A member of the RNA family "CRISPR RNA direct repeat element" from Trichonephila inaurata, 30 nucleotides long. NCBI's taxonomy places the organism under Eukaryota, Eumetazoa, Entelegynae, Araneoidea, Trichonephila inaurata.

[Rfam]
RNA sequence: AUUAAAAUCAAACGGGUUCGGAUUCGAAAC
Numbered sequence: 001a002u003u004a005a006a007a008u009c010a011a012a013c014g015g016g017u018u019c020g021g022a023u024u025c026g027a028a029a030c
Stems, first nucleotide, its partner, number of pairs: 013026005